[Rfam]
RNA sequence: CAUCACGAUCUACGACGACUGGCUACUGGAACUUCAAACCUUCCUUUAGACCUCGCACACAUAAUUGAAAUGCUUUAGGGAAAGUCCCCGGACCCAAGUUGACAGAAAGUGUCGCCAAUAAUAUUUUUUACUGGUUGAGUCCAAUACCACUGAAGAUUGAUCUGUUAUGCUUUGGGUGAAGAUUCUCGUCUCGGCGAGAUGAAUGCUCCUCAACGAUCUGUUUUUGUGGUUUGGUGUUUGUCAUGGUUACAGUUAUGCGAUUGCGGUUAUCCUUUUCUUUAUGAGAAGGAUGAUUGUAACUCAACGGGGCUCACUCGCGACCGUGGU
Numbered sequence: 001c002a003u004c005a006c007g008a009u010c011u012a013c014g015a016c017g018a019c020u021g022g023c024u025a026c027u028g029g030a031a032c033u034u035c036a037a038a039c040c041u042u043c044c045u046u047u048a049g050a051c052c053u054c055g056c057a058c059a060c061a062u063a064a065u066u067g068a069a070a071u072g073c074u075u076u077a078g079g080g081a082a083a084g085u086c087c088c089c090g091g092a093c094c095c096a097a098g099u100u101g102a103c104a105g106a107a108a109g110u111g112u113c114g115c116c117a118a119u120a121a122u123a124u125u126u127u128u129u130a131c132u133g134g135u136u137g138a139g140u141c142c143a144a145u146a147c148c149a150c151u152g153a154a155g156a157u158u159g160a161u162c163u164g165u166u167a168u169g170c171u172u173u174g175g176g177u178g179a180a181g182a183u184u185c186u187c188g189u190c191u192c193g194g195c196g197a198g199a200u201g202a203a204u205g206c207u208c209c210u211c212a213a214c215g216a217u218c219u220g221u222u223u224u225u226g227u228g229g230u231u232u233g234g235u236g237u238u239u240g241u242c243a244u245g246g247u248u249a250c251a252g253u254u255a256u257g258c259g260a261u262u263g264c265g266g267u268u269a270u271c272c273u274u275u276u277c278u279u280u281a282u283g284a285g286a287a288g289g290a291u292g293a294u295u296g297u298a299a300c301u302c303a304a305c306g307g308g309g310c311u312c313a314c315u316c317g318c319g320a321c322c323g324u325g326g327u
Stems, first nucleotide, its partner, number of pairs: 002327005013319002018262001020260001022258002026078005032072001083311002086309004101113004130145001132143003147234003154219006163212002174206001176204002189199004264296013
Shown here is a 327-nucleotide RNA sequence from Mortierella sp. AD032, a member of the family "RNase MRP". Gene Ontology terms of the family: rRNA processing, ribonuclease MRP complex and ribonuclease MRP activity. Rfam describes the family as follows. RNase MRP is an enzymatically active ribonucleoprotein with two distinct roles in eukaryotes. The match comes from Rfam's covariance-model search (72 bits). Rfam 15.1 lists 3,510 matches to the family in 2,315 species.